[Rfam]
RNA: Makes More Granules Regulator RNA (mmgR)
RNA sequence: CAGCCGUGCCUUUUAGGCAUCCUCUCCCAAAACUUUCCAGGCCCGGUCGGUAACGACCGGGCCUUUUUUCUGUCUGGU
Numbered sequence: 001c002a003g004c005c006g007u008g009c010c011u012u013u014u015a016g017g018c019a020u021c022c023u024c025u026c027c028c029a030a031a032a033c034u035u036u037c038c039a040g041g042c043c044c045g046g047u048c049g050g051u052a053a054c055g056a057c058c059g060g061g062c063c064u065u066u067u068u069u070c071u072g073u074c075u076g077g078u
Base pairs, nucleotide, nucleotide: 008018009017010016011015040063041062042061043060044059045058046057047056048055